[Rfam]
RNA sequence: AUAGGCCACGACGGGAGCUGGGGGAACCCGGCUGAGAGGGUGGCUGUCUCCGCCACCGACCGUCAGAACCUGAUCUGGGUAAUGCCAGCGCAGGGACCUGGGGGGUAGCCAAC
Numbered sequence: 001a002u003a004g005g006c007c008a009c010g011a012c013g014g015g016a017g018c019u020g021g022g023g024g025a026a027c028c029c030g031g032c033u034g035a036g037a038g039g040g041u042g043g044c045u046g047u048c049u050c051c052g053c054c055a056c057c058g059a060c061c062g063u064c065a066g067a068a069c070c071u072g073a074u075c076u077g078g079g080u081a082a083u084g085c086c087a088g089c090g091c092a093g094g095g096a097c098c099u100g101g102g103g104g105g106u107a108g109c110c111a112a113c
Stems, first nucleotide, its partner, number of pairs: 006101003010097001011063004017032005039057005069094004075088004

About this RNA
TPP riboswitch aptamer (THI element): a 113-nucleotide sequence from bacterium HR23. Pairs were carried over by alignment from the consensus structure, which is taken from published work.